[Rfam]
RNA sequence: ACGAACCACUAGGGGAGCCUUCAAAAGGCUGAGAUUAAAGUAUGGACUUUAAGACCCUUGGAACCUGAUCCAGUUUAUACUGGCGUAGGAAAGUGGAGAGCUGUAUAU
Numbered sequence: 001a002c003g004a005a006c007c008a009c010u011a012g013g014g015g016a017g018c019c020u021u022c023a024a025a026a027g028g029c030u031g032a033g034a035u036u037a038a039a040g041u042a043u044g045g046a047c048u049u050u051a052a053g054a055c056c057c058u059u060g061g062a063a064c065c066u067g068a069u070c071c072a073g074u075u076u077a078u079a080c081u082g083g084c085g086u087a088g089g090a091a092a093g094u095g096g097a098g099a100g101c102u103g104u105a106u107a108u
Stems, first nucleotide, its partner, number of pairs: 006096005011058004017029005036051005064089004070083004
Shown here is a 108-nucleotide RNA from Virgibacillus sp. MSP4-1, a member of the family "TPP riboswitch aptamer (THI element)".
On this family, see Rodionov et al., J Biol Chem 2002: "Comparative genomics of thiamin biosynthesis in procaryotes. New genes and regulatory mechanisms".
Its family is annotated with thiamine pyrophosphate binding in the Gene Ontology.
The family has 115 seed sequences and 16,130 matches in Rfam 15.1.
Vitamin B(1) in its active form thiamin pyrophosphate (TPP) is an essential coenzyme that is synthesised by coupling of pyrimidine and thiazole moieties in bacteria.
The organism belongs to Virgibacillus, within Bacteria.